Rfam assigns this 303-nucleotide RNA sequence from Thermoplasma acidophilum to the family "Archaeal RNase P". The literature on the family includes a 1998 paper in Annu Rev Biochem by Frank and Pace, "Ribonuclease P: unity and diversity in a tRNA processing ribozyme". NCBI's taxonomy places the organism under Archaea, Thermoplasmata, Thermoplasmatales, Thermoplasmataceae, Thermoplasma. Rfam links the family to the GO terms multimeric ribonuclease P complex, ribonuclease P activity and tRNA processing.

RNA sequence: CGGGAAAGCGCGAGGGCAGCUGACGCCCUUGAGGUGAGGAAAGUCCCCCCUCCUCGGCGGUAUCCGGCUGGCGCAAGCCAGCAUCCUGAGAGGGAUGGUAAAGGCAAAAGAAAUAAACGGUCUCCGGUAAAGCAUGAUUCCGAAGGGAUGACGUUUCCGGAGGAUCCGAUGGAAAGCCUCCCCGGAUGGAGAAAGUCUAAACGGAUCCUGUGAGGCCGCCGUGAGGAUCGGGUAAGACGAACAGUCGAAUGCUGCCAGCCCAUUGGGUGAACAGAAGGGGGCUUACUCCGCGGAUUCCCGCCA
Numbered sequence: 001c002g003g004g005a006a007a008g009c010g011c012g013a014g015g016g017c018a019g020c021u022g023a024c025g026c027c028c029u030u031g032a033g034g035u036g037a038g039g040a041a042a043g044u045c046c047c048c049c050c051u052c053c054u055c056g057g058c059g060g061u062a063u064c065c066g067g068c069u070g071g072c073g074c075a076a077g078c079c080a081g082c083a084u085c086c087u088g089a090g091a092g093g094g095a096u097g098g099u100a101a102a103g104g105c106a107a108a109a110g111a112a113a114u115a116a117a118c119g120g121u122c123u124c125c126g127g128u129a130a131a132g133c134a135u136g137a138u139u140c141c142g143a144a145g146g147g148a149u150g151a152c153g154u155u156u157c158c159g160g161a162g163g164a165u166c167c168g169a170u171g172g173a174a175a176g177c178c179u180c181c182c183c184g185g186a187u188g189g190a191g192a193a194a195g196u197c198u199a200a201a202c203g204g205a206u207c208c209u210g211u212g213a214g215g216c217c218g219c220c221g222u223g224a225g226g227a228u229c230g231g232g233u234a235a236g237a238c239g240a241a242c243a244g245u246c247g248a249a250u251g252c253u254g255c256c257a258g259c260c261c262a263u264u265g266g267g268u269g270a271a272c273a274g275a276a277g278g279g280g281g282c283u284u285a286c287u288c289c290g291c292g293g294a295u296u297c298c299c300g301c302c303a
Base pairs, nucleotide, nucleotide: 004297005296006295009292010291011290012289013287014286015256016255017254018253019252020251024036025035026034027033041284042283043282045281046280047279048278049277050191051190052189053188055221056220057219058218059217062187063186064185065184066183067082068081069080070079071078083096084095085094086093087092097182098181102179103178104177105176118168119167120166121163122162123161124160125159126158127157139148140147195238196237197236198235204229205228206227207226208225